[Rfam]
Nucleotides: 110
Stems, first nucleotide, its partner, number of pairs: 008096002011061004017033005040055005065090004072083003
Number, partner (000 for none) and nucleotide at each position: 001000a002000a003000u004000a005000a006000a007000g008096u009095g010000c011061u012060g013059g014058g015000g016000a017033g018032c019031u020030a021029g022000c023000c024000g025000u026000a027000a028000g029021c030020u031019g032018g033017c034000u035000g036000a037000g038000a039000g040055g041054g042053a043052g044051u045000u046000g047000g048000a049000g050000g051044a052043c053042u054041c055040c056000g057000a058014c059013c060012c061011a062000u063000a064000a065090c066089c067088u068087g069000a070000u071000g072083c073082g074081g075000a076000u077000a078000a079000u080000a081074c082073c083072g084000a085000c086000g087068u088067a089066g090065g091000a092000a093000g094000a095009c096008a097000a098000c099000g100000u101000a102000u103000a104000u105000g106000a107000g108000u109000a110000g